[Rfam]
This 64-nucleotide RNA sequence belongs to the Rfam family "L2-Alphaproteobacteria ribosomal protein leader".
RNA sequence: GGCCACCUUUGGGGGGCUUCACCAUAGGCAGAGUAUCUGCCGCUAAGCAAACGGAAGACAGAAA
Dot-bracket structure: ((((.(((...)))))))........(((((.....))))).......................
The family's RNA type in Rfam is cis-regulatory leader. The base pairs follow the family's consensus structure, which is taken from published work. For this family Rfam cites "Discovery of 20 novel ribosomal leader candidates in bacteria and archaea" (Eckert and Weinberg, BMC Microbiol, 2020).